[Rfam]
RNA sequence: AAGCUAAAAGGGAAAAGUUGUAGCGCUGUAUGUUAUUUGAUCACCAUAAGCGUAUAGCUUUUCCCCUUAGUUU
Numbered sequence: 001a002a003g004c005u006a007a008a009a010g011g012g013a014a015a016a017g018u019u020g021u022a023g024c025g026c027u028g029u030a031u032g033u034u035a036u037u038u039g040a041u042c043a044c045c046a047u048a049a050g051c052g053u054a055u056a057g058c059u060u061u062u063c064c065c066c067u068u069a070g071u072u073u
Base pairs, nucleotide, nucleotide: 003071004070005069006068007067010065011064012063014061015060018057019056020055021054022053026050027049029048030047031046032045

mir-965 microRNA precursor family: a 73-nucleotide RNA sequence from Pieris macdunnoughi. Rfam links the family to the GO terms miRNA-mediated post-transcriptional gene silencing and RISC complex. The family has 16 seed sequences and 224 matches in Rfam 15.1. On this family, see Huang et al., Bioorg Khim 2012: "The regulation of silkworm fibroin L chain production by miRNA-965 and miRNA-1926 in insect cells". Taxonomically the source falls in Pieris (Eukaryota, Altocrustacea, Dicondylia, Neolepidoptera).